[Rfam]
RNA sequence: CAGGCUCCGGUUCACCCCGAAACAUCGGGGAUCCGGCGGCC
Numbered sequence: 001c002a003g004g005c006u007c008c009g010g011u012u013c014a015c016c017c018c019g020a021a022a023c024a025u026c027g028g029g030g031a032u033c034c035g036g037c038g039g040c041c
Stems, first nucleotide, its partner, number of pairs: 003041003007036004015030006

The family of this 41-nucleotide RNA from Pseudonocardiaceae bacterium YIM PH 21723 is "L31-Actinobacteria ribosomal protein leader". A search with the family's covariance model found it, with a score of 43 bits. By type it is a cis-regulatory leader.